[Rfam]
RNA sequence: GCGGGUGUAGCUCAGUUGGCUAGAGCAUCAGCCUUCCAAGCUGAGGGUCACGGGUUCAAGUCCCGUUACCCGCU
Numbered sequence: 001g002c003g004g005g006u007g008u009a010g011c012u013c014a015g016u017u018g019g020c021u022a023g024a025g026c027a028u029c030a031g032c033c034u035u036c037c038a039a040g041c042u043g044a045g046g047g048u049c050a051c052g053g054g055u056u057c058a059a060g061u062c063c064c065g066u067u068a069c070c071c072g073c074u
Stems, first nucleotide, its partner, number of pairs: 001073007010026004028044005050066005